[Rfam]
Nucleotides: 153
Stems, first nucleotide, its partner, number of pairs: 005149006017029003031133002033123002035066004061121002071097001103119005125136003
Number, partner (000 for none) and nucleotide at each position: 001000a002000c003000a004000u005149u006148c007147c008146u009145u010144c011000g012000g013000g014000g015000c016000a017029g018028g019027g020000u021000g022000a023000a024000a025000u026000u027019c028018c029017c030000g031133a032132c033123c034122g035066g036065c037064g038063g039000u040000g041000a042000u043000c044000g045000c046000g047000c048000c049000a050000a051000a052000a053000g054000c055000g056000c057000g058000u059000a060000a061121g062120c063038c064037c065036g066035c067000g068000a069000g070000c071097c072000u073000c074000c075000g076000c077000g078000a079000u080000g081000c082000g083000a084000a085000a086000g087000c088000u089000u090000c091000c092000g093000g094000a095000g096000u097071g098000c099000a100000g101000g102000a103119u104118c105117u106116g107115g108000u109000g110000c111000a112000a113000a114000u115107c116106c117105a118104g119103a120062g121061c122034c123033g124000a125136c126135a127134g128000u129000a130000c131000a132032g133031u134127c135126u136125g137000g138000a139000u140000g141000g142000g143000a144010g145009a146008a147007g148006g149005a150000u151000g152000a153000c